[Rfam]
RNA sequence: GGAGGAGUGGCCGAGCGGUUGAAGGCACUGGUCUUGAAAACCAGCAACGUUUUAGGGCGUUCGUGGGUUCGAAUCCCACCUCCUCCA
Numbered sequence: 001g002g003a004g005g006a007g008u009g010g011c012c013g014a015g016c017g018g019u020u021g022a023a024g025g026c027a028c029u030g031g032u033c034u035u036g037a038a039a040a041c042c043a044g045c046a047a048c049g050u051u052u053u054a055g056g057g058c059g060u061u062c063g064u065g066g067g068u069u070c071g072a073a074u075c076c077c078a079c080c081u082c083c084u085c086c087a
Stems, first nucleotide, its partner, number of pairs: 001086007010026003028044005063079005